[Rfam]
RNA: mir-193 microRNA precursor family
Organism: Scyliorhinus torazame
RNA sequence: GUUUGGAACUGGGCCUUUGUGAGCAAGAUGCGUCACUUAUUGCAACAACUGGCCUGCAAAGUCCCAGUUUUAAGC
Number, nucleotide and partner (000 for none) at each position: 001g000002u000003u073004u072005g071006g070007a069008a068009c000010u066011g065012g064013g063014c000015c061016u060017u059018u058019g057020u000021g055022a000023g053024c052025a000026a050027g049028a000029u047030g046031c000032g000033u000034c000035a000036c000037u000038u000039a000040u000041u000042g000043c000044a000045a000046c030047a029048a000049c027050u026051g000052g024053c023054c000055u021056g000057c019058a018059a017060a016061g015062u000063c013064c012065c011066a010067g000068u008069u007070u006071u005072a004073a003074g000075c000